[Rfam]
The family of this 73-nucleotide sequence from Mycolicibacterium cosmeticum is "tRNA".
Taxonomically the source falls in Mycobacterium (subgen. Mycolicibacterium) (Bacteria, Actinomycetota, Actinomycetes, Mycobacterium).
Rfam's curators write: Transfer RNA (tRNA) molecules are approximately 80 nucleotides in length.
Rfam classes the family as a transfer RNA.

RNA sequence: GCCGCCUUAGCUCAGUCGGUAGAGCAUCUCACUCGUAAUGAGAAGGUCGGGGGUUCGAUUCCCCCAGGCGGCU
Numbered sequence: 001g002c003c004g005c006c007u008u009a010g011c012u013c014a015g016u017c018g019g020u021a022g023a024g025c026a027u028c029u030c031a032c033u034c035g036u037a038a039u040g041a042g043a044a045g046g047u048c049g050g051g052g053g054u055u056c057g058a059u060u061c062c063c064c065c066a067g068g069c070g071g072c073u
Stems, first nucleotide, its partner, number of pairs: 001072007010025004027043005049065005